[Rfam]
RNA sequence: CUGGAAUGAUGUGAUUUAGCCAAAUCAUACGUUCAUGUGCUCCAUGUGGUACCGAACAUUGUUUCUAAAGCUGGCUCUCAUGGUAAAACUAAGCAUGCAAGCAAGCUUUGGUUGAUGUUCACGGUCCUCAUGUUGAAGUGCAUUUCCCUGAUGAUAAACCAGGAGAUUGGUUGUUUCCUGACCAGA
Number, nucleotide and partner (000 for none) at each position: 001c185002u184003g183004g182005a000006a000007u000008g000009a000010u000011g000012u000013g000014a000015u000016u000017u000018a000019g000020c000021c000022a000023a000024a000025u000026c000027a000028u000029a000030c000031g000032u000033u000034c000035a000036u000037g000038u000039g000040c000041u000042c000043c000044a000045u000046g000047u000048g000049g000050u000051a000052c000053c000054g000055a000056a000057c000058a000059u000060u000061g000062u000063u000064u000065c000066u000067a000068a000069a000070g000071c000072u000073g000074g000075c000076u000077c000078u000079c000080a000081u000082g000083g000084u000085a000086a000087a000088a000089c000090u000091a000092a000093g000094c000095a000096u000097g000098c000099a000100a000101g000102c000103a000104a000105g000106c000107u000108u000109u000110g000111g000112u000113u000114g000115a000116u000117g000118u000119u000120c000121a000122c000123g000124g000125u000126c000127c000128u000129c000130a000131u000132g000133u000134u000135g000136a000137a000138g000139u000140g000141c000142a000143u000144u000145u000146c000147c000148c000149u000150g000151a000152u000153g000154a000155u000156a000157a000158a000159c000160c000161a000162g000163g000164a000165g000166a000167u000168u000169g000170g000171u000172u000173g000174u000175u000176u000177c000178c000179u000180g000181a000182c004183c003184a002185g001186a000
A member of the RNA family "small nucleolar RNA snoR127" from Phaseolus vulgaris, 186 nucleotides long.
By type it is a C/D-box small nucleolar RNA.
The source organism's lineage runs through Eukaryota, Pentapetalae, Fabaceae, Phaseoleae and Phaseolus.
For this family Rfam cites "Mining small RNA sequencing data: a new approach to identify small nucleolar RNAs in Arabidopsis" (Chen and Wu, Nucleic Acids Res, 2009).
Its family is annotated with nucleolus and RNA processing in the Gene Ontology.